[Rfam]
The family of this 347-nucleotide RNA from Allosphingosinicella flava is "Alphaproteobacteria transfer-messenger RNA". The family's RNA type in Rfam is non-coding RNA gene. It scores 230 bits against the family's covariance model. The organism belongs to Allosphingosinicella, within Bacteria. Pairs were carried over by alignment from the consensus structure, which is taken from published work. About the family: Bacterial tmRNA, also known as 10Sa RNA or SsrA, is named for its dual tRNA and mRNA-like properties.
RNA sequence: CCCCUUCAAAUCCCACGGAAUGAGCCUAUAUUCAUGACUGCCGGAUUCGUCCGGCUAUGACGAUAAAGUGCGGCGUGCAAUAGACGCAGCGGACCCGGGGGCGGUACCCGGCGGCUCCACCACAAUCGACCUCAUCGAGGCCGGUUCUGACGGGGCCGAACUAGGAUCGACGUGUGUUGAAAAGCGCUGUUUUCGUCCGGGCUGAGUAACCCGUUCAAGGCUCAAACACACACAAGUGCCAACGAUAACGAGGCUCUUGCUAUUGCUGCGUAACCCGAACCUCACGGUUUAGGUUAUACCAGACAAAAGCACGGUACGGACCGCACCGGGUAACAGAAGCGGAAACC
Numbered sequence: 001c002c003c004c005u006u007c008a009a010a011u012c013c014c015a016c017g018g019a020a021u022g023a024g025c026c027u028a029u030a031u032u033c034a035u036g037a038c039u040g041c042c043g044g045a046u047u048c049g050u051c052c053g054g055c056u057a058u059g060a061c062g063a064u065a066a067a068g069u070g071c072g073g074c075g076u077g078c079a080a081u082a083g084a085c086g087c088a089g090c091g092g093a094c095c096c097g098g099g100g101g102c103g104g105u106a107c108c109c110g111g112c113g114g115c116u117c118c119a120c121c122a123c124a125a126u127c128g129a130c131c132u133c134a135u136c137g138a139g140g141c142c143g144g145u146u147c148u149g150a151c152g153g154g155g156c157c158g159a160a161c162u163a164g165g166a167u168c169g170a171c172g173u174g175u176g177u178u179g180a181a182a183a184g185c186g187c188u189g190u191u192u193u194c195g196u197c198c199g200g201g202c203u204g205a206g207u208a209a210c211c212c213g214u215u216c217a218a219g220g221c222u223c224a225a226a227c228a229c230a231c232a233c234a235a236g237u238g239c240c241a242a243c244g245a246u247a248a249c250g251a252g253g254c255u256c257u258u259g260c261u262a263u264u265g266c267u268g269c270g271u272a273a274c275c276c277g278a279a280c281c282u283c284a285c286g287g288u289u290u291a292g293g294u295u296a297u298a299c300c301a302g303a304c305a306a307a308a309g310c311a312c313g314g315u316a317c318g319g320a321c322c323g324c325a326c327c328g329g330g331u332a333a334c335a336g337a338a339g340c341g342g343a344a345a346c347c
Base pairs, nucleotide, nucleotide: 040055041054042053043052044051059197060196061195062194063193070190071189072188073187074186075185076184085176086175087174089173090172091171095111096110097109098108099107112158113157114156115155116154117153118152198213199212200211201210203224204223205222312328313327314326315325321341